[Rfam]
RNA: SAM (S-adenosyl methionine) riboswitch aptamer
Organism: Paenarthrobacter sp. YJN-5
RNA sequence: AGUAAUGAGUACCAGCGCCAAGCCCUGACUUGCUGGUCGGCAACCCUCUCCCGCGGCGGGGUGCCUCAGGUGACUACUCGGCGUAUUCGACACUUCGAACUGCAAGCGUGACUG
Numbered sequence: 001a002g003u004a005a006u007g008a009g010u011a012c013c014a015g016c017g018c019c020a021a022g023c024c025c026u027g028a029c030u031u032g033c034u035g036g037u038c039g040g041c042a043a044c045c046c047u048c049u050c051c052c053g054c055g056g057c058g059g060g061g062u063g064c065c066u067c068a069g070g071u072g073a074c075u076a077c078u079c080g081g082c083g084u085a086u087u088c089g090a091c092a093c094u095u096c097g098a099a100c101u102g103c104a105a106g107c108g109u110g111a112c113u114g
Stems, first nucleotide, its partner, number of pairs: 001078004009038001011037006021030002039065003044061003048056002081103003086099005